tRNA: a 73-nucleotide RNA from Ralstonia pseudosolanacearum.
Gene Ontology term of the family: triplet codon-amino acid adaptor activity.
By type it is a transfer RNA.
RNA sequence: GGGCCUGUAGCUCAGGGGUUAGAGCAGACGACUCAUAAUCGUUUGGUCGUGGGUUCGAAACCCACCGGGCCCA
Numbered sequence: 001g002g003g004c005c006u007g008u009a010g011c012u013c014a015g016g017g018g019u020u021a022g023a024g025c026a027g028a029c030g031a032c033u034c035a036u037a038a039u040c041g042u043u044u045g046g047u048c049g050u051g052g053g054u055u056c057g058a059a060a061c062c063c064a065c066c067g068g069g070c071c072c073a
Stems, first nucleotide, its partner, number of pairs: 001072007010025004027043005049065005